[Rfam]
Nucleotides: 530
Stems, first nucleotide, its partner, number of pairs: 007523010022508001023472002027443002029440006035433002044107004048061003067100006076088003111120003127141005148179001149177005159166002189196002200227005210218002230426004238259003269364004279357004295342001299315001301314004318322001324336003376397007404420005459466002
Number, partner (000 for none) and nucleotide at each position: 001000c002000u003000a004000c005000u006000g007523u008522g009521c010520c011519a012518g013517c014516u015515g016514g017000u018000g019000g020000a021000u022508g023472g024471c025000u026000c027443g028442g029440c030439u031438c032437g033436a034435g035433c036432g037000c038000c039000g040000a041000c042000g043000a044107c045106g046105g047104a048061c049060g050059u051000g052000c053000c054000a055000a056000g057000c058000u059050g060049c061048g062000a063000u064000a065000a066000g067100c068099c069098u070097g071096a072095g073000g074000g075000a076088g077087c078086c079000g080000c081000a082000c083000g084000g085000a086078g087077g088076c089000g090000a091000a092000g093000a094000a095072c096071u097070c098069a099068g100067g101000a102000u103000c104047u105046c106045c107044g108000a109000a110000u111120g112119g113118g114000a115000a116000u117000c118113c119112c120111c121000a122000c123000c124000g125000c126000a127141a128140u129139u130138g131137c132000u133000u134000c135000g136000c137131g138130c139129a140128a141127u142000g143000g144000g145000g146000a147000a148179c149177g150176c151175c152174g153173g154000g155000a156000a157000u158000u159166g160165a161000a162000a163000c164000a165160u166159c167000u168000c169000a170000g171000u172000a173153c174152c175151g176150g177149c178000a179148g180000g181000a182000a183000u184000a185000g186000a187000a188000a189196c190195c191000a192000a193000a194000c195190g196189g197000g198000a199000u200227g201226u202225c203224g204223u205000g206000a207000g208000u209000a210218a211217c212000g213000g214000c215000g216000a217211g218210u219000g220000a221000a222000a223204a224203c225202g226201a227200u228000c229000c230426a231425g232424u233423c234000c235000a236000a237000a238259c239258c240257g241000a242000a243000g244000c245000c246000u247000u248000c249000g250000g251000g252000c253000a254000a255000u256000g257240u258239g259238g260000u261000g262000u263000u264000a265000g266000g267000a268000c269364u270363g271362g272361c273000u274000c275000u276000c277000a278000u279357c280356a281355c282354c283000g284000g285000a286000a287000c288000u289000c290000u291000c292000g293000u294000u295342c296000g297000a298000a299315g300000u301314c302313u303312c304311c305000u306000g307000g308000a309000a310000a311304g312303g313302a314301g315299c316000g317000u318322g319000a320000u321000a322318c323000a324336g325335g326334g327000u328000g329000a330000c331000a332000a333000c334326c335325c336324c337000g338000u339000a340000a341000c342295g343000u344000g345000a346000a347000c348000a349000a350000g351000u352000a353000u354282g355281g356280u357279g358000u359000g360000c361272g362271c363270c364269a365000g366000a367000u368000c369000c370000a371000g372000a373000g374000u375000a376397a377396u378395g379394a380393g381392g382391g383000u384000c385000g386000g387000a388000u389000a390000u391382c392381c393380c394379u395378c396377g397376u398000g399000a400000a401000u402000a403000u404420a405419g406418c407417g408416g409000a410000c411000a412000u413000c414000g415000a416408c417407c418406g419405c420404u421000a422000a423233g424232a425231c426230u427000a428000a429000a430000c431000a432036c433035g434000u435034c436033u437032c438031g439030a440029g441000a442028c443027c444000g445000a446000u447000a448000g449000c450000g451000a452000a453000c454000a455000a456000g457000u458000a459466g460465c461000g462000u463000g464000a465460g466459c467000g468000a469000a470000c471024g472023c473000u474000g475000a476000a477000a478000a479000g480000c481000a482000c483000c484000c485000c486000a487000c488000a489000a490000a491000g492000g493000g494000a495000g496000g497000u498000g499000c500000a501000a502000u503000a504000g505000g506000g507000c508022c509000u510000g511000a512000a513000a514016u515015c516014a517013g518012u519011u520010g521009g522008c523007g524000a525000u526000g527000g528000a529000g530000c
A member of the RNA family "Archaeal large subunit ribosomal RNA" from a halophilic archaeon, 530 nucleotides of a longer RNA. It scores 2819 bits against the family's covariance model. The family's consensus secondary structure is taken from published work.